[Rfam]
The family of this 84-nucleotide RNA sequence from Jejuibacter calystegiae is "DsrA RNA". Rfam links the family to the GO terms positive regulation of translation and mRNA transcription. The family's RNA type in Rfam is small RNA. Taxonomically the source falls in Jejuibacter (Bacteria, Pseudomonadota, Gammaproteobacteria, Enterobacterales). Pairs were carried over by alignment from the consensus structure, which is taken from published work. DsrA RNA regulates both transcription, by overcoming transcriptional silencing by the nucleoid-associated H-NS protein, and translation, by promoting efficient translation of the stress sigma factor, RpoS. These two activities of DsrA can be separated by mutation: the first of three stem-loops of the 85 nucleotide RNA is necessary for RpoS translation but not for anti-H-NS action, while the second stem-loop is essential for antisilencing and less critical for RpoS translation. The third stem-loop, which behaves as a transcription terminator, can be substituted by the trp transcription terminator without loss of either DsrA function. The sequence of the first stem-loop of DsrA is complementary with the upstream leader portion of RpoS messenger RNA, suggesting that pairing of DsrA with the RpoS message might be important for translational regulation.
RNA sequence: CGCACAUCAGAUUUCCUGGUGUGACGAAUUUUCAAGUGCUUUCUUGCAUAACUGCAAGUUUCAUCCCGGCCCCGGCCGGGAUGU
Numbered sequence: 001c002g003c004a005c006a007u008c009a010g011a012u013u014u015c016c017u018g019g020u021g022u023g024a025c026g027a028a029u030u031u032u033c034a035a036g037u038g039c040u041u042u043c044u045u046g047c048a049u050a051a052c053u054g055c056a057a058g059u060u061u062c063a064u065c066c067c068g069g070c071c072c073c074g075g076c077c078g079g080g081a082u083g084u
Stems, first nucleotide, its partner, number of pairs: 004022007026061003029057002031054001032051001034049001036047003063082007
The match comes from Rfam's covariance-model search (66 bits). For this family Rfam cites "DsrA RNA regulates translation of RpoS message by an anti-antisense mechanism, independent of its action as an antisilencer of transcription" (Majdalani et al., Proc Natl Acad Sci USA, 1998).